RNA sequence: GGAAACUGGUUUCACAUGGUGAAGUAGAUACAGCGACAUCUUGUCUAGCACCAUAUGAAAUCAGUGUUCU
Numbered sequence: 001g002g003a004a005a006c007u008g009g010u011u012u013c014a015c016a017u018g019g020u021g022a023a024g025u026a027g028a029u030a031c032a033g034c035g036a037c038a039u040c041u042u043g044u045c046u047a048g049c050a051c052c053a054u055a056u057g058a059a060a061u062c063a064g065u066g067u068u069c070u
Base pairs, nucleotide, nucleotide: 001070002069003068004067005065006064007063008062009061010060011059012058013057014056016054017053018052019051020050021049025047026046027045028044
Annotation:
The family of this 70-nucleotide sequence from Eptatretus burgeri is "mir-29 microRNA precursor family". Rfam's curators write: This family represents the microRNA (miRNA) precursors mir-29. A search with the family's covariance model found it, with a score of 61 bits. A reference for the family is Ambros (2001), "microRNAs: tiny regulators with great potential", Cell.